[Rfam]
RNA: Bacterial RNase P class B
RNA sequence: AGUUUUGGGUAAUUGAGCAUAGCCAUGCGCUAUGUUAGGAAGGUCCAUGCUCGCACAAGCUGCGAUGCUUGUAGUGUUUGUGCUCGCUGAAACGAUAAGGCGGGGCACCGAUUCAUUCGGUGACGGCGGAAAAAACGGCUACGGUUUUACUAUGCCUGAGUAUUCCUGAAAAGUGCCACAGGGACGACCUAACUAGGAAACUAGCUAGAUGGAACGCGGUAAACCCCUCAAGCGGUAAACCCAAACUACGGUAGGGGAGCUUUGGAUAACAAAUUGAAGUGAUUCCAGGGGAGAGCAUUUUGCUCUGAGAUAGAUGAUUACCUCGGUAUAAUCAUUGCCUGAUGGUUAUACUACGACAAAACAUGGCCUACAGAU
Numbered sequence: 001a002g003u004u005u006u007g008g009g010u011a012a013u014u015g016a017g018c019a020u021a022g023c024c025a026u027g028c029g030c031u032a033u034g035u036u037a038g039g040a041a042g043g044u045c046c047a048u049g050c051u052c053g054c055a056c057a058a059g060c061u062g063c064g065a066u067g068c069u070u071g072u073a074g075u076g077u078u079u080g081u082g083c084u085c086g087c088u089g090a091a092a093c094g095a096u097a098a099g100g101c102g103g104g105g106c107a108c109c110g111a112u113u114c115a116u117u118c119g120g121u122g123a124c125g126g127c128g129g130a131a132a133a134a135a136c137g138g139c140u141a142c143g144g145u146u147u148u149a150c151u152a153u154g155c156c157u158g159a160g161u162a163u164u165c166c167u168g169a170a171a172a173g174u175g176c177c178a179c180a181g182g183g184a185c186g187a188c189c190u191a192a193c194u195a196g197g198a199a200a201c202u203a204g205c206u207a208g209a210u211g212g213a214a215c216g217c218g219g220u221a222a223a224c225c226c227c228u229c230a231a232g233c234g235g236u237a238a239a240c241c242c243a244a245a246c247u248a249c250g251g252u253a254g255g256g257g258a259g260c261u262u263u264g265g266a267u268a269a270c271a272a273a274u275u276g277a278a279g280u281g282a283u284u285c286c287a288g289g290g291g292a293g294a295g296c297a298u299u300u301u302g303c304u305c306u307g308a309g310a311u312a313g314a315u316g317a318u319u320a321c322c323u324c325g326g327u328a329u330a331a332u333c334a335u336u337g338c339c340u341g342a343u344g345g346u347u348a349u350a351c352u353a354c355g356a357c358a359a360a361a362c363a364u365g366g367c368c369u370a371c372a373g374a375u
Stems, first nucleotide, its partner, number of pairs: 005374002007371001008322007016036006041369003045366005051235004055072006078231003082227001083104006105124001106122006125226002128166004137156003143151003173224002175220003189208003193204004240256003260290007292306005325352011